[Rfam]
RNA sequence: UCCGGGGGAAGCUCACCGCCGAGGCCACGCACCGGGUGCGCGUCACUCCGCCGCGCCUCGGGGAAGGUCUGAGGGAGGGGCCGUGGCGGCCCUAGCAGGGCCCCGCCCGCGCGGGCGGGUGAGCCACCAGAGAGGGGGGGCACCGCGGCGGCCGGCCCGGGCAGGAGAAGCCGCGGGCGGCGGCGCGGCCCGCCCGCCCCGGCGGAUGCUCAUGGCUCCGCGGCGUCUUGAGACAGACUCACGGCCGGCACUGCUGAGUCCAAUGGGUGAGGUGGGGCACCGCCCCACAACCCAAUUCAGACUACUCUCCCCCGGA
Dot-bracket structure: ((((..(((..((((((..(((((.........(((((.....))))).......)))))........[[[[[.....((((.....(((((.....)))))((((((....))))))(((((.(.............(((...................................................................................)))........).)))))))))...................))))))(((((((...))))))).......]]]]].......)))..))))
The record is a 316-nucleotide RNA sequence from Apteryx owenii, which matches "Nuclear RNase P" in Rfam.
By type it is a ribozyme.
The source organism's lineage runs through Eukaryota, Sarcopterygii, Aves, Apterygidae and Apteryx.
Ribonuclease P (RNase P) is a ubiquitous endoribonuclease, found in archaea, bacteria and eukarya as well as chloroplasts and mitochondria.
The match comes from Rfam's covariance-model search (159 bits).